[Rfam]
RNA sequence: GGGGCGCGGUUCGCGGAGACGGGAGGCGACCCUCUCUCGAAACUUCGCGACGCCACGUCGCCGGCGCUGGUCUUCCUUCGUGCGGAAGCCUUUGAAAAAAGGCGCGGACCAGGCCGAAUAUCCGAGGGUGGCGCGGGGAUAGACUACCCGAAAGGGGAAAACAACCCUGGCCCCGGAGGCGGCGAACAGCAGAAAAGGCGACCGUGGUCCGGAA
Numbered sequence: 001g002g003g004g005c006g007c008g009g010u011u012c013g014c015g016g017a018g019a020c021g022g023g024a025g026g027c028g029a030c031c032c033u034c035u036c037u038c039g040a041a042a043c044u045u046c047g048c049g050a051c052g053c054c055a056c057g058u059c060g061c062c063g064g065c066g067c068u069g070g071u072c073u074u075c076c077u078u079c080g081u082g083c084g085g086a087a088g089c090c091u092u093u094g095a096a097a098a099a100a101g102g103c104g105c106g107g108a109c110c111a112g113g114c115c116g117a118a119u120a121u122c123c124g125a126g127g128g129u130g131g132c133g134c135g136g137g138g139a140u141a142g143a144c145u146a147c148c149c150g151a152a153a154g155g156g157g158a159a160a161a162c163a164a165c166c167c168u169g170g171c172c173c174c175g176g177a178g179g180c181g182g183c184g185a186a187c188a189g190c191a192g193a194a195a196a197g198g199c200g201a202c203c204g205u206g207g208u209c210c211g212g213a214a
Base pairs, nucleotide, nucleotide: 005206006205007204008203009202010201012049013048014047015046016045017044018043062116063115064114065113067112068111069110070109071108072107073087074086075085076084091102092101093100126173127172128171129170

Methylosinus-1 RNA: a 214-nucleotide RNA sequence. It is annotated as a small RNA.